[Rfam]
RNA sequence: CGUAACACGUUUCCUUGUCACUCCUUCGUCUCGUCUAUAAUAGAGAACUGGACGGAGAACUGAUAAGGGCUUGUGGGUAA
Numbered sequence: 001c002g003u004a005a006c007a008c009g010u011u012u013c014c015u016u017g018u019c020a021c022u023c024c025u026u027c028g029u030c031u032c033g034u035c036u037a038u039a040a041u042a043g044a045g046a047a048c049u050g051g052a053c054g055g056a057g058a059a060c061u062g063a064u065a066a067g068g069g070c071u072u073g074u075g076g077g078u079a080a
Stems, first nucleotide, its partner, number of pairs: 012069009022059001024057004030051002